[Rfam]
RNA: Transposase-1 RNA
RNA sequence: AUUGAAGAGCUAGUCAAUGUGAUUACUCUUAUAUUGGAAUAUCAAAAUACUAGUGAAGA
Dot-bracket structure: ........((((((.....((((...(((......)))..))))....)))))).....